The record is a 77-nucleotide RNA sequence from Alligator sinensis, which matches "Mammalian CPEB3 ribozyme" in Rfam. The source organism's lineage runs through Eukaryota, Teleostomi, Sauropsida, Alligatoridae and Alligator.

RNA sequence: AUUGUAAGUUCAAAGGCCGUAGCAGAAGCACUCACAGUGCAGCCCUGUCAGAUUCCAACAAAUCUGUGAAUUCUGCU
Numbered sequence: 001a002u003u004g005u006a007a008g009u010u011c012a013a014a015g016g017c018c019g020u021a022g023c024a025g026a027a028g029c030a031c032u033c034a035c036a037g038u039g040c041a042g043c044c045c046u047g048u049c050a051g052a053u054u055c056c057a058a059c060a061a062a063u064c065u066g067u068g069a070a071u072u073c074u075g076c077u
Base pairs, nucleotide, nucleotide: 015044016043017042021077022076023075024074025073026072027071028040029039030038049066050065051064052063053062054061